[Rfam]
Shown here is a 76-nucleotide sequence from Corynebacterium sp. 366, a member of the family "Glycine riboswitch aptamer". Lineage of the source: Bacteria > Bacillati > Mycobacteriales > Corynebacteriaceae > Corynebacterium. Pairs were carried over by alignment from the consensus structure.
RNA sequence: CUCUGGAAAGCGCUUUCGGCAGUCGUAGGUCGAAAAGCCACCGAAGGAGCAAAACUCUCAGGUACCAGCGACAGAG
Numbered sequence: 001c002u003c004u005g006g007a008a009a010g011c012g013c014u015u016u017c018g019g020c021a022g023u024c025g026u027a028g029g030u031c032g033a034a035a036a037g038c039c040a041c042c043g044a045a046g047g048a049g050c051a052a053a054a055c056u057c058u059c060a061g062g063u064a065c066c067a068g069c070g071a072c073a074g075a076g
Stems, first nucleotide, its partner, number of pairs: 001076005012038004040063003043059002047057003